[Rfam]
RNA: RNA anti-toxin A
RNA sequence: UAAUGAAUACAGAAAAAGAGCUGAGCGCCAACUCAGCUCCAUGUAGAACCGUUAAAAAGACGGUGACUCGCUAUUAUUAGACUAUAAC
Numbered sequence: 001u002a003a004u005g006a007a008u009a010c011a012g013a014a015a016a017a018g019a020g021c022u023g024a025g026c027g028c029c030a031a032c033u034c035a036g037c038u039c040c041a042u043g044u045a046g047a048a049c050c051g052u053u054a055a056a057a058a059g060a061c062g063g064u065g066a067c068u069c070g071c072u073a074u075u076a077u078u079a080g081a082c083u084a085u086a087a088c
Base pairs, nucleotide, nucleotide: 022035023034024033025032048064049063050062051061052060053059